[Rfam]
RNA sequence: GUCAGGAACCUCUCGGCUUACAGCCGUGGGCUUGAAAAAGCCCAUACCUGACGAGCCUAAGACCUACAUGGUCUACGUUAUGCCCAAGAGUUAAAGUUCCUACCUUGGGGUGUGUGCCAGCCCUAAGCUGCUAGAACUUCAGCAUUAAACAGGUGUACAGGGUUAAGCCAGUGUGCUGGAGAAAGUACCGAGGCAUAACAUUGGCAAGGCAAACGUUAC
Numbered sequence: 001g002u003c004a005g006g007a008a009c010c011u012c013u014c015g016g017c018u019u020a021c022a023g024c025c026g027u028g029g030g031c032u033u034g035a036a037a038a039a040g041c042c043c044a045u046a047c048c049u050g051a052c053g054a055g056c057c058u059a060a061g062a063c064c065u066a067c068a069u070g071g072u073c074u075a076c077g078u079u080a081u082g083c084c085c086a087a088g089a090g091u092u093a094a095a096g097u098u099c100c101u102a103c104c105u106u107g108g109g110g111u112g113u114g115u116g117c118c119a120g121c122c123c124u125a126a127g128c129u130g131c132u133a134g135a136a137c138u139u140c141a142g143c144a145u146u147a148a149a150c151a152g153g154u155g156u157a158c159a160g161g162g163u164u165a166a167g168c169c170a171g172u173g174u175g176c177u178g179g180a181g182a183a184a185g186u187a188c189c190g191a192g193g194c195a196u197a198a199c200a201u202u203g204g205c206a207a208g209g210c211a212a213a214c215g216u217u218a219c
Stems, first nucleotide, its partner, number of pairs: 001052006008045001010030002014026004031040003055205003059201001060074005077199006091191002098135002104127008113213001115211004137181009149172002152169002156166001157164001
HNH endonuclease-associated RNA and ORF (HEARO) RNA: a 219-nucleotide RNA sequence from Coleofasciculus chthonoplastes. The family has 139 seed sequences and 952 matches in Rfam 15.1. The sequence is in the family's curated seed alignment. For this family Rfam cites "Exceptional structured noncoding RNAs revealed by bacterial metagenome analysis" (Weinberg et al., Nature, 2009).